[Rfam]
Glycine riboswitch aptamer: an 82-nucleotide sequence from Clostridium tarantellae. On this family, see Babina et al., MBio 2017: "In Vivo Behavior of the Tandem Glycine Riboswitch in Bacillus subtilis". The base pairs follow the family's consensus structure. Gene Ontology term of the family: glycine biosynthetic process. It scores 48 bits against the family's covariance model.
Nucleotides: 082
Stems, first nucleotide, its partner, number of pairs: 006077004011072003021036003039062003042058002046056003
Number, partner (000 for none) and nucleotide at each position: 001000a002000u003000g004000a005000a006077g007076g008075u009074a010000u011072c012071g013070g014000g015000a016000g017000a018000g019000u020000g021036a022035c023034a024000c025000u026000a027000a028000a029000c030000g031000u032000a033000g034023u035022g036021u037000a038000c039062a040061c041060c042058g043057a044000a045000g046056a047055g048054g049000g050000a051000a052000a053000u054048c055047u056046u057043u058042c059000a060041g061040g062039u063000u064000u065000a066000u067000g068000g069000a070013c071012c072011g073000u074009u075008a076007c077006u078000g079000g080000a081000c082000g